MIR159 microRNA precursor family: a 191-nucleotide RNA sequence from Ricinus communis. The base pairs follow the family's consensus structure, which was predicted with WAR. The organism belongs to Ricinus, within Eukaryota. Gene Ontology terms of the family: miRNA-mediated post-transcriptional gene silencing and RISC complex. A reference for the family is Jones-Rhoades and Bartel (2004), "Computational identification of plant microRNAs and their targets, including a stress-induced miRNA", Mol Cell.
[Rfam]
RNA sequence: UAUGGGAAGAAGGAGCUCUCUUCAGUCCAGUCCAAGGCGGUUGAGGGCUGGGACUUAGCUGCUGACUCGUUGGUUCAAGAGCUCAUCAUCAUCAAUGUGUAAGAGAUGUCUUUUUGAUCCAACGAAGCUGGAGCUGUGUUCAGUUAUGGCUGUCAUGUCUUGGACUGAAGGGAGCUCCCUCCAAUUCUUAC
Numbered sequence: 001u002a003u004g005g006g007a008a009g010a011a012g013g014a015g016c017u018c019u020c021u022u023c024a025g026u027c028c029a030g031u032c033c034a035a036g037g038c039g040g041u042u043g044a045g046g047g048c049u050g051g052g053a054c055u056u057a058g059c060u061g062c063u064g065a066c067u068c069g070u071u072g073g074u075u076c077a078a079g080a081g082c083u084c085a086u087c088a089u090c091a092u093c094a095a096u097g098u099g100u101a102a103g104a105g106a107u108g109u110c111u112u113u114u115u116g117a118u119c120c121a122a123c124g125a126a127g128c129u130g131g132a133g134c135u136g137u138g139u140u141c142a143g144u145u146a147u148g149g150c151u152g153u154c155a156u157g158u159c160u161u162g163g164a165c166u167g168a169a170g171g172g173a174g175c176u177c178c179c180u181c182c183a184a185u186u187c188u189u190a191c
Stems, first nucleotide, its partner, number of pairs: 013177008023167007036154001059133002062130001064128001068124004076116001